[Rfam]
RNA sequence: AUAAAAAAAUCCCCGUAAGAAUUGAUCUUACGGGGUGCCCGUGAUCAUACGUUCUGUAUGUACGAGGCUAUGGGAGAGGAGAAACCGGAGGAAGAACUUAUGGGGAAACGUAAGCCUUCUCCGCGG
Numbered sequence: 001a002u003a004a005a006a007a008a009a010u011c012c013c014c015g016u017a018a019g020a021a022u023u024g025a026u027c028u029u030a031c032g033g034g035g036u037g038c039c040c041g042u043g044a045u046c047a048u049a050c051g052u053u054c055u056g057u058a059u060g061u062a063c064g065a066g067g068c069u070a071u072g073g074g075a076g077a078g079g080a081g082a083a084a085c086c087g088g089a090g091g092a093a094g095a096a097c098u099u100a101u102g103g104g105g106a107a108a109c110g111u112a113a114g115c116c117u118u119c120u121c122c123g124c125g126g
Stems, first nucleotide, its partner, number of pairs: 011035009038074005046060005086123004091119004097114004
Shown here is a 126-nucleotide RNA from Halalkalibacterium halodurans, a member of the family "ylbH leader". From the family's description: This family is a putative regulatory RNA structure that is found upstream of the ylbH gene in B. subtilis and related low GC Gram-positive bacteria. The match comes from Rfam's covariance-model search (89 bits). NCBI's taxonomy places the organism under Bacteria, Bacillati, Bacillaceae, Halalkalibacterium (ex Joshi et al. 2022), Halalkalibacterium halodurans. A reference for the family is Barrick et al. (2004), "New RNA motifs suggest an expanded scope for riboswitches in bacterial genetic control", Proc Natl Acad Sci U S A.